[Rfam]
RNA sequence: AACUCAGCUAGGGAGAGUAGCGAGCAUUACGUAAUACUACGUAUUACUCCAAUAACAUUGUCACUGAUGAGACCUAGACGAAACUACGGUAAACAUUUGCAUCAUACUGUAGUCUGAUA
Numbered sequence: 001a002a003c004u005c006a007g008c009u010a011g012g013g014a015g016a017g018u019a020g021c022g023a024g025c026a027u028u029a030c031g032u033a034a035u036a037c038u039a040c041g042u043a044u045u046a047c048u049c050c051a052a053u054a055a056c057a058u059u060g061u062c063a064c065u066g067a068u069g070a071g072a073c074c075u076a077g078a079c080g081a082a083a084c085u086a087c088g089g090u091a092a093a094c095a096u097u098u099g100c101a102u103c104a105u106a107c108u109g110u111a112g113u114c115u116g117a118u119a
Stems, first nucleotide, its partner, number of pairs: 002018004008077005059119005071079001083113009
Shown here is a 119-nucleotide sequence, a member of the family "RAGATH-1 hammerhead ribozyme". Gene Ontology term of the family: RNA nuclease activity. The base pairs follow the family's consensus structure, which is taken from published work.